[Rfam]
RNA sequence: GCCGAGCCAAAUAACGUGGGCUUGUCACCCAAGUGGGGGCUAUGAAGUGGUGGGACAUUGACCAAACUCAGAUGGCUGGAUAUGGGAUGGCUAAUAUCUGGCACGCCCAUUCCAAGCCGGGAGUUGAAUCAAGAGGCUCGGGCUAAAGCUUGAGUUGCUUGGCUCCUACAGUUGAGGGUACCGCGUGAGGCUGGCUUCACAGAGCAGCGACUACUUCCCGCUUCCGGCAGUGGAAGGAUGACGAGUUGGUGUCACCCGGAUCCACAUAGCCAAAUGGGCUGUUCUAAUUGGACCACCACUUUU
Numbered sequence: 001g002c003c004g005a006g007c008c009a010a011a012u013a014a015c016g017u018g019g020g021c022u023u024g025u026c027a028c029c030c031a032a033g034u035g036g037g038g039g040c041u042a043u044g045a046a047g048u049g050g051u052g053g054g055a056c057a058u059u060g061a062c063c064a065a066a067c068u069c070a071g072a073u074g075g076c077u078g079g080a081u082a083u084g085g086g087a088u089g090g091c092u093a094a095u096a097u098c099u100g101g102c103a104c105g106c107c108c109a110u111u112c113c114a115a116g117c118c119g120g121g122a123g124u125u126g127a128a129u130c131a132a133g134a135g136g137c138u139c140g141g142g143c144u145a146a147a148g149c150u151u152g153a154g155u156u157g158c159u160u161g162g163c164u165c166c167u168a169c170a171g172u173u174g175a176g177g178g179u180a181c182c183g184c185g186u187g188a189g190g191c192u193g194g195c196u197u198c199a200c201a202g203a204g205c206a207g208c209g210a211c212u213a214c215u216u217c218c219c220g221c222u223u224c225c226g227g228c229a230g231u232g233g234a235a236g237g238a239u240g241a242c243g244a245g246u247u248g249g250u251g252u253c254a255c256c257c258g259g260a261u262c263c264a265c266a267u268a269g270c271c272a273a274a275u276g277g278g279c280u281g282u283u284c285u286a287a288u289u290g291g292a293c294c295a296c297c298a299c300u301u302u303u
Stems, first nucleotide, its partner, number of pairs: 001040003004023005010017001028037003044302010056290002058287003061283001063281002068277003073272005078263004083258004088254003092251002098249005104243002107237002110235005116228009126165002129162005135156009166171001174217004184209003191202003
Shown here is a 303-nucleotide sequence from Manihot esculenta, a member of the family "Plant signal recognition particle RNA". Pairs were carried over by alignment from the consensus structure, which is taken from published work. For this family Rfam cites "Towards the structure of the mammalian signal recognition particle" (Wild et al., Curr Opin Struct Biol, 2002). Rfam links the family to the GO terms SRP-dependent cotranslational protein targeting to membrane, signal sequence recognition and signal recognition particle, endoplasmic reticulum targeting. Lineage of the source: Eukaryota > Streptophytina > Mesangiospermae > Pentapetalae > Manihot.